[Rfam]
RNA: epsC RNA
Organism: Bacillus sp. AFS040349
Nucleotides: 116
Stems, first nucleotide, its partner, number of pairs: 001019004007034007035099004039094008049068007071083004102116005
Number, partner (000 for none) and nucleotide at each position: 001019u002018g003017g004016u005000g006000a007034u008033a009032u010031c011030u012029c013028c014000u015000u016004a017003c018002c019001a020000u021000u022000g023000u024000c025000a026000a027000u028013g029012g030011a031010g032009g033008u034007a035099c036098u037097c038096g039094g040093u041092u042091a043090u044089g045088c046087u047000g048000u049068g050067g051066g052065u053064u054063a055062a056000u057000g058000a059000u060000c061000u062055u063054u064053g065052a066051c067050c068049u069000u070000a071083g072082a073081c074080a075000c076000a077000a078000g079000u080074u081073g082072u083071c084000g085000a086000g087046a088045g089044u090043g091042u092041a093040a094039u095000g096038u097037g098036a099035g100000g101000a102116g103115g104114g105113g106112u107000u108000a109000g110000a111000u112106g113105c114104c115103c116102u